Overview:
A member of the RNA family "FMN riboswitch aptamer (RFN element)" from Neoasaia chiangmaiensis, 149 nucleotides long. The base pairs follow the family's consensus structure, which is taken from published work. Rfam links the family to the GO term FMN binding. A search with the family's covariance model found it, with a score of 107 bits.
RNA sequence: AGACGUUCUCAGGGCGGGGUGGAACUCCCCACCGGCGGUAGGCGCGACAAGCGCGAGCCCGCGAGCGCCUUCGGCACAAUGCCGGAGGGUCAGCAGAUCCGGUCGAACUCCGGAGCCGACGGUCAUAGUCCGGAUGAAAGAGAACGCGG
Number, nucleotide and partner (000 for none) at each position: 001a000002g000003a000004c146005g145006u144007u143008c142009u141010c140011a000012g000013g000014g000015c000016g000017g029018g028019g027020u000021g000022g000023a000024a000025c000026u000027c019028c018029c017030c000031a129032c128033c118034g117035g062036c061037g060038g059039u000040a000041g000042g000043c000044g000045c000046g000047a000048c000049a000050a000051g000052c000053g000054c000055g000056a000057g116058c115059c038060c037061g036062c035063g000064a000065g094066c093067g000068c000069c000070u000071u000072c000073g000074g000075c000076a000077c000078a000079a000080u000081g000082c000083c000084g000085g000086a000087g000088g000089g000090u000091c000092a000093g066094c065095a000096g000097a000098u114099c113100c112101g111102g110103u000104c000105g000106a000107a000108c000109u000110c102111c101112g100113g099114a098115g058116c057117c034118g033119a000120c132121g131122g130123u000124c000125a000126u000127a000128g032129u031130c122131c121132g120133g000134a000135u000136g000137a000138a000139a000140g010141a009142g008143a007144a006145c005146g004147c000148g000149g000